Shown here is a 79-nucleotide sequence from Apium graveolens, a member of the family "Small nucleolar RNA J33". The source organism's lineage runs through Eukaryota, Streptophytina, Euphyllophyta, Gunneridae and Apium. For this family Rfam cites "The high diversity of snoRNAs in plants: identification and comparative study of 120 snoRNA genes from Oryza sativa" (Chen et al., Nucleic Acids Res, 2003). The pairing is the family consensus, mapped onto this sequence.
RNA sequence: CUGUUAGGGGAAUGAUGUAUUAAUAUAGAGCCCUCAAGAUUCUUGUUAAUAAUAUUAGCUACUAAAUAUGUAUUAACUG
Numbered sequence: 001c002u003g004u005u006a007g008g009g010g011a012a013u014g015a016u017g018u019a020u021u022a023a024u025a026u027a028g029a030g031c032c033c034u035c036a037a038g039a040u041u042c043u044u045g046u047u048a049a050u051a052a053u054a055u056u057a058g059c060u061a062c063u064a065a066a067u068a069u070g071u072a073u074u075a076a077c078u079g
Base pairs, nucleotide, nucleotide: 001079003077004076005075006074